[Rfam]
RNA sequence: AACGCCCUUGACCAACACGGAUACUCGACCGCCCGUUCAAGCGAUGAUCGCGUUUAUCGACGAUAACCGCGAGGUCGAUGGGGUCGAGCCGAUCUGCAAUGUCCUGCCGAUCGCCCCU
Numbered sequence: 001a002a003c004g005c006c007c008u009u010g011a012c013c014a015a016c017a018c019g020g021a022u023a024c025u026c027g028a029c030c031g032c033c034c035g036u037u038c039a040a041g042c043g044a045u046g047a048u049c050g051c052g053u054u055u056a057u058c059g060a061c062g063a064u065a066a067c068c069g070c071g072a073g074g075u076c077g078a079u080g081g082g083g084u085c086g087a088g089c090c091g092a093u094c095u096g097c098a099a100u101g102u103c104c105u106g107c108c109g110a111u112c113g114c115c116c117c118u
Base pairs, nucleotide, nucleotide: 018031019030020029080117081116082115083114090113091112093110094109096107097106098105
RNA: ALIL pseudoknot
Organism: Novosphingobium hassiacum